[Rfam]
RNA sequence: GUUUUACCGGCCCGGGAGAAGCUUAGGUCCGAAGAGGGAGGGGUGGAGUAAAUAUGAGAAGGAAGUGGCGAGGAGGCCGCGGUGGAGUCUCGGCGCUUGACCAGCAGGGCUCAUGGACGCGGGGAGGCGGUCUGUUUGCGCAGACAUUGCUCUUGCCGCGCGCGGCUCCCCAGGCCCUGACACGGGCCUCGGCUCCGGGAGGAAGAGGAGCCCGCCUGGGCGACGAAGAGAGCGGGCCGCCCCGCAGCCCGAGCCGGAGAGGGAGCGCGAGCCGCGCCGGCCCCGGCCGGGCCUCCGAAACCAUGAACUUUCUGCUC
Numbered sequence: 001g002u003u004u005u006a007c008c009g010g011c012c013c014g015g016g017a018g019a020a021g022c023u024u025a026g027g028u029c030c031g032a033a034g035a036g037g038g039a040g041g042g043g044u045g046g047a048g049u050a051a052a053u054a055u056g057a058g059a060a061g062g063a064a065g066u067g068g069c070g071a072g073g074a075g076g077c078c079g080c081g082g083u084g085g086a087g088u089c090u091c092g093g094c095g096c097u098u099g100a101c102c103a104g105c106a107g108g109g110c111u112c113a114u115g116g117a118c119g120c121g122g123g124g125a126g127g128c129g130g131u132c133u134g135u136u137u138g139c140g141c142a143g144a145c146a147u148u149g150c151u152c153u154u155g156c157c158g159c160g161c162g163c164g165g166c167u168c169c170c171c172a173g174g175c176c177c178u179g180a181c182a183c184g185g186g187c188c189u190c191g192g193c194u195c196c197g198g199g200a201g202g203a204a205g206a207g208g209a210g211c212c213c214g215c216c217u218g219g220g221c222g223a224c225g226a227a228g229a230g231a232g233c234g235g236g237c238c239g240c241c242c243c244g245c246a247g248c249c250c251g252a253g254c255c256g257g258a259g260a261g262g263g264a265g266c267g268c269g270a271g272c273c274g275c276g277c278c279g280g281c282c283c284c285g286g287c288c289g290g291g292c293c294u295c296c297g298a299a300a301c302c303a304u305g306a307a308c309u310u311u312c313u314g315c316u317c
Base pairs, nucleotide, nucleotide: 002036003035008031010029012027014023015022052316056312058310059309061302062301065295067293068292073284075282076281077280078279079277080276082275083274084273085272093268094267095266096265097264098263107250108249109248110247111246114244115243116242119171121170122169124168125167126166127163128162129161130159132158134156138150139149140148173241174240175239179238181236183234184233187228189226190225191224194220195219197216198215199213201211
Rfam assigns this 317-nucleotide RNA sequence from Myotis lucifugus to the family "Vascular endothelial growth factor (VEGF) IRES A". Lineage of the source: Eukaryota > Metazoa > Eumetazoa > Bilateria > Myotis. This family represents the vascular endothelial growth factor (VEGF) internal ribosome entry site (IRES) A. VEGF is an endothelial cell mitogen with many crucial functions such as embryogenic development and wound healing. The 5' UTR of VEGF mRNA contains two IRES elements which are able to promote efficient translation at the AUG start codon, this family represents IRES A.